[Rfam]
RNA sequence: UCAGGCGAUGACGACACACUUGCCCUCACUGAGAGCAGCUGAUGAGAGCACUUGGAUACGCUCAGUGGAACCGAGCCAGA
Numbered sequence: 001u002c003a004g005g006c007g008a009u010g011a012c013g014a015c016a017c018a019c020u021u022g023c024c025c026u027c028a029c030u031g032a033g034a035g036c037a038g039c040u041g042a043u044g045a046g047a048g049c050a051c052u053u054g055g056a057u058a059c060g061c062u063c064a065g066u067g068g069a070a071c072c073g074a075g076c077c078a079g080a
Base pairs, nucleotide, nucleotide: 001080002079004077005076006075